[Rfam]
RNA sequence: AUAAUGAGACUUCCGUAAUUCGCGGCCCGGCCACAAUGAAGGCGGGGUGGGGUAACGCCCAAUGA
Numbered sequence: 001a002u003a004a005u006g007a008g009a010c011u012u013c014c015g016u017a018a019u020u021c022g023c024g025g026c027c028c029g030g031c032c033a034c035a036a037u038g039a040a041g042g043c044g045g046g047g048u049g050g051g052g053u054a055a056c057g058c059c060c061a062a063u064g065a
Stems, first nucleotide, its partner, number of pairs: 012062001013025004026047003030043003048061003